Shown here is a 72-nucleotide sequence from Ditylenchus dipsaci, a member of the family "mir-71 microRNA precursor family". For this family Rfam cites "Direct sequencing and expression analysis of a large number of miRNAs in Aedes aegypti and a multi-species survey of novel mosquito miRNAs" (Li et al., BMC Genomics, 2009). Lineage of the source: Eukaryota > Opisthokonta > Nematoda > Anguininae > Ditylenchus.
RNA sequence: GAUGUGUGAAAGACACGAGGUAGUGAGACGCUGUGAAAAGGCCCGUAUCACUAUUCUGUUUUUCGUCCGUCU
Numbered sequence: 001g002a003u004g005u006g007u008g009a010a011a012g013a014c015a016c017g018a019g020g021u022a023g024u025g026a027g028a029c030g031c032u033g034u035g036a037a038a039a040g041g042c043c044c045g046u047a048u049c050a051c052u053a054u055u056c057u058g059u060u061u062u063u064c065g066u067c068c069g070u071c072u
Stems, first nucleotide, its partner, number of pairs: 008064008017056001019055002022052005028046003
Record summary
Pairs were carried over by alignment from the consensus structure, which was predicted with RNAalifold. Rfam links the family to the GO terms miRNA-mediated post-transcriptional gene silencing and RISC complex.